Background: This 179-nucleotide RNA from Pukyongiella litopenaei belongs to the Rfam family "Ruegeria cis52 sRNA". The family has 2 seed sequences and 277 matches in Rfam 15.1. NCBI's taxonomy places the organism under Bacteria, Pseudomonadota, Alphaproteobacteria, Rhodobacterales, Pukyongiella. Rfam classes the family as a small RNA.

[Rfam]
RNA sequence: UGCGCAACGCGUGUUUCAGCACGAUCUUGGAAAAUCCGACGCCUUUGAGCCGCGCGGUGCGGAUAUAUUGCGCGGUCAUCACCUCGGUCAUCGAGGCCCGCGUCAUCCGCGCGAUAUAGCCCAUGCCGUAGAGCGCGAUGGUGAUGACCGGCAGGGUGAAGUUUUCCAAUGUCGCGUGC
Numbered sequence: 001u002g003c004g005c006a007a008c009g010c011g012u013g014u015u016u017c018a019g020c021a022c023g024a025u026c027u028u029g030g031a032a033a034a035u036c037c038g039a040c041g042c043c044u045u046u047g048a049g050c051c052g053c054g055c056g057g058u059g060c061g062g063a064u065a066u067a068u069u070g071c072g073c074g075g076u077c078a079u080c081a082c083c084u085c086g087g088u089c090a091u092c093g094a095g096g097c098c099c100g101c102g103u104c105a106u107c108c109g110c111g112c113g114a115u116a117u118a119g120c121c122c123a124u125g126c127c128g129u130a131g132a133g134c135g136c137g138a139u140g141g142u143g144a145u146g147a148c149c150g151g152c153a154g155g156g157u158g159a160a161g162u163u164u165u166c167c168a169a170u171g172u173c174g175c176g177u178g179c
Stems, first nucleotide, its partner, number of pairs: 005140002008137005014131002016128001019126003028123003040111003046105003051100002054097001055075001057073006082096005147177001149174005154165003